A member of the RNA family "mir-9/mir-79 microRNA precursor family" from Monodelphis domestica, 62 nucleotides long. Pairs were carried over by alignment from the consensus structure, which was predicted with RNAalifold. A reference for the family is Lagos-Quintana et al. (2001), "Identification of novel genes coding for small expressed RNAs", Science.
RNA sequence: UCUUUGGUUAUCUAGCUGUAUGAGUGGUGUCGAGUCUUCAUAAAGCUAGAUAACCGAAAGUA
Numbered sequence: 001u002c003u004u005u006g007g008u009u010a011u012c013u014a015g016c017u018g019u020a021u022g023a024g025u026g027g028u029g030u031c032g033a034g035u036c037u038u039c040a041u042a043a044a045g046c047u048a049g050a051u052a053a054c055c056g057a058a059a060g061u062a
Stems, first nucleotide, its partner, number of pairs: 001060001003058015019042006